The record is a 323-nucleotide RNA from Papaver nudicaule, which matches "Plant signal recognition particle RNA" in Rfam. The family's RNA type in Rfam is non-coding RNA gene. The source organism's lineage runs through Eukaryota, Streptophyta, Streptophytina, Embryophyta and Papaver. Pairs were carried over by alignment from the consensus structure, which is taken from published work. It scores 170 bits against the family's covariance model.

[Rfam]
RNA sequence: GUUGAGCUCGGUAGCGCGAGCUUGUGACCCAAGUGGGGAGUGGGGACAUUAAUGUGGUUGAAUAUUGUUGGUUCGGAUUCACUCGGUAGGUUCUGGUUUGCACACAAUGUUGACUCGCCCGCUCCAAGUCGGGAGUUGAUUUGUACGGUCUGGGCGUAGGCCUGGGUUGUGUGGUCACUGAAGAGGAGGGUACGGCGUCCGGCGUCAGGCUGGUUUCCAAGAGCAGCGAUCACCUCCCUCUCUUGGCAGCGGAAGGAUAACGAGCCGAUGUGUCAUAGUUCCAACACACCCUGGUGCGCCGAGUCAGUUGGACAACCACUUUU
Numbered sequence: 001g002u003u004g005a006g007c008u009c010g011g012u013a014g015c016g017c018g019a020g021c022u023u024g025u026g027a028c029c030c031a032a033g034u035g036g037g038g039a040g041u042g043g044g045g046a047c048a049u050u051a052a053u054g055u056g057g058u059u060g061a062a063u064a065u066u067g068u069u070g071g072u073u074c075g076g077a078u079u080c081a082c083u084c085g086g087u088a089g090g091u092u093c094u095g096g097u098u099u100g101c102a103c104a105c106a107a108u109g110u111u112g113a114c115u116c117g118c119c120c121g122c123u124c125c126a127a128g129u130c131g132g133g134a135g136u137u138g139a140u141u142u143g144u145a146c147g148g149u150c151u152g153g154g155c156g157u158a159g160g161c162c163u164g165g166g167u168u169g170u171g172u173g174g175u176c177a178c179u180g181a182a183g184a185g186g187a188g189g190g191u192a193c194g195g196c197g198u199c200c201g202g203c204g205u206c207a208g209g210c211u212g213g214u215u216u217c218c219a220a221g222a223g224c225a226g227c228g229a230u231c232a233c234c235u236c237c238c239u240c241u242c243u244u245g246g247c248a249g250c251g252g253a254a255g256g257a258u259a260a261c262g263a264g265c266c267g268a269u270g271u272g273u274c275a276u277a278g279u280u281c282c283a284a285c286a287c288a289c290c291c292u293g294g295u296g297c298g299c300c301g302a303g304u305c306a307g308u309u310g311g312a313c314a315a316c317c318a319c320u321u322u323u
Stems, first nucleotide, its partner, number of pairs: 001047003004023007028044004051322002054319007063310002065307003072303005080296004085291002089282002093278003100273003110268003114264004119256002123253003128247008137177005144171012178183001185237005194230001196228003210221002